[Rfam]
Description
Shown here is a 135-nucleotide sequence from Suricata suricatta, a member of the family "Small nucleolar RNA SNORA38". Rfam 15.1 lists 628 matches to the family in 149 species.

RNA sequence: CCCUCCUACAAAGAUGUGUCUGUAGUUCCCGGUCUUUGGACGCGUCAAAAUUGAAGGAAAAGAAACACGGAUAUGAAGAAGUCUGGGGCCAACUUGCUCCCUCCCUGUAGGCUCAAGACCAACCGUUCAACAGAG
Numbered sequence: 001c002c003c004u005c006c007u008a009c010a011a012a013g014a015u016g017u018g019u020c021u022g023u024a025g026u027u028c029c030c031g032g033u034c035u036u037u038g039g040a041c042g043c044g045u046c047a048a049a050a051u052u053g054a055a056g057g058a059a060a061a062g063a064a065a066c067a068c069g070g071a072u073a074u075g076a077a078g079a080a081g082u083c084u085g086g087g088g089c090c091a092a093c094u095u096g097c098u099c100c101c102u103c104c105c106u107g108u109a110g111g112c113u114c115a116a117g118a119c120c121a122a123c124c125g126u127u128c129a130a131c132a133g134a135g
Stems, first nucleotide, its partner, number of pairs: 002057003006053001015044007025029001069128003091113001093111005

The organism belongs to Suricata, within Eukaryota. From the family's description: ACA38 is a member of the H/ACA class of snoRNA that guide the sites of modification of uridines to pseudouridines.